Shown here is a 53-nucleotide sequence from Mycolicibacterium austroafricanum, a member of the family "L31-Actinobacteria ribosomal protein leader".

[Rfam]
RNA sequence: UCGGUUCCGGUUCACGCCGCAGCCUCCCAUCGCGGGAAGGGCGACCCGGGACC
Numbered sequence: 001u002c003g004g005u006u007c008c009g010g011u012u013c014a015c016g017c018c019g020c021a022g023c024c025u026c027c028c029a030u031c032g033c034g035g036g037a038a039g040g041g042c043g044a045c046c047c048g049g050g051a052c053c
Stems, first nucleotide, its partner, number of pairs: 003053003007049004015043004023039001
For this family Rfam cites "Discovery of 20 novel ribosomal leader candidates in bacteria and archaea" (Eckert and Weinberg, BMC Microbiol, 2020). Rfam classes the family as a cis-regulatory leader. The source organism's lineage runs through Bacteria, Bacillati, Mycobacteriaceae, Mycobacterium (subgen. Mycolicibacterium) and Mycolicibacterium austroafricanum.